[Rfam]
RNA sequence: UAGAACAAUGUAGGUAAGGGAAGUCGGCAAAUUAGAUCCGUAACUUCGGGAAAAGGAUUGGCUCUAAGGGCUGAGCCGGUCGGGCUGGGGUACGAAGCGGGCGUGGAACUGGCAGGGCUGGCCGAGACCGCGAGGUCGAGGUCGGACCGUCGCCGGGACCUUCCCGUGGAAUGUCUCAGCUGUGCAGCGUCGUCUCGGCGGCGUUCGCUUCGGCCGGCAUUCGACAGCCAACUUAGAACUGGUACGGACCAGGGGAAUCCGACUGUCUAAUUAAAACAAAGCAUUGCGAUGGUCGUCGCACGAUGUUGACGCAAUGUGAUUUCUGCCCAGUGCUCUGAAUGUCAAAGUGAAGAAAUUCAAACAAGCGCGGGUAAACGGCGGGAGUAACUAUGACUCUCUUAAGGUAGCCAAAUGCCUUGUCAUCUAAUUAGUGACGCGCAUGAAUGGAUUAACGAGAUUCCCACUGUCCCUAUCUACUAUCUAGCGAAACCACAGCAAAGGGAACGGGCUUUGCAGA
Numbered sequence: 001u002a003g004a005a006c007a008a009u010g011u012a013g014g015u016a017a018g019g020g021a022a023g024u025c026g027g028c029a030a031a032u033u034a035g036a037u038c039c040g041u042a043a044c045u046u047c048g049g050g051a052a053a054a055g056g057a058u059u060g061g062c063u064c065u066a067a068g069g070g071c072u073g074a075g076c077c078g079g080u081c082g083g084g085c086u087g088g089g090g091u092a093c094g095a096a097g098c099g100g101g102c103g104u105g106g107a108a109c110u111g112g113c114a115g116g117g118c119u120g121g122c123c124g125a126g127a128c129c130g131c132g133a134g135g136u137c138g139a140g141g142u143c144g145g146a147c148c149g150u151c152g153c154c155g156g157g158a159c160c161u162u163c164c165c166g167u168g169g170a171a172u173g174u175c176u177c178a179g180c181u182g183u184g185c186a187g188c189g190u191c192g193u194c195u196c197g198g199c200g201g202c203g204u205u206c207g208c209u210u211c212g213g214c215c216g217g218c219a220u221u222c223g224a225c226a227g228c229c230a231a232c233u234u235a236g237a238a239c240u241g242g243u244a245c246g247g248a249c250c251a252g253g254g255g256a257a258u259c260c261g262a263c264u265g266u267c268u269a270a271u272u273a274a275a276a277c278a279a280a281g282c283a284u285u286g287c288g289a290u291g292g293u294c295g296u297c298g299c300a301c302g303a304u305g306u307u308g309a310c311g312c313a314a315u316g317u318g319a320u321u322u323c324u325g326c327c328c329a330g331u332g333c334u335c336u337g338a339a340u341g342u343c344a345a346a347g348u349g350a351a352g353a354a355a356u357u358c359a360a361a362c363a364a365g366c367g368c369g370g371g372u373a374a375a376c377g378g379c380g381g382g383a384g385u386a387a388c389u390a391u392g393a394c395u396c397u398c399u400u401a402a403g404g405u406a407g408c409c410a411a412a413u414g415c416c417u418u419g420u421c422a423u424c425u426a427a428u429u430a431g432u433g434a435c436g437c438g439c440a441u442g443a444a445u446g447g448a449u450u451a452a453c454g455a456g457a458u459u460c461c462c463a464c465u466g467u468c469c470c471u472a473u474c475u476a477c478u479a480u481c482u483a484g485c486g487a488a489a490c491c492a493c494a495g496c497a498a499a500g501g502g503a504a505c506g507g508g509c510u511u512u513g514c515a516g517a
Stems, first nucleotide, its partner, number of pairs: 001483004010477007018469003035059005044049001060240002063237006069229005075218009084180003088176004097167004103162001105160002109156005115148002118145006126137004241245001253462007260454002264278003281317008292304004321448003325379003330376002332372004337368001340367003348359004380398006399403001419435005496513005
A member of the RNA family "Eukaryotic large subunit ribosomal RNA" from Owenia fusiformis, 517 nucleotides of a longer RNA. Taxonomically the source falls in Owenia (Eukaryota, Protostomia, Lophotrochozoa, Oweniidae).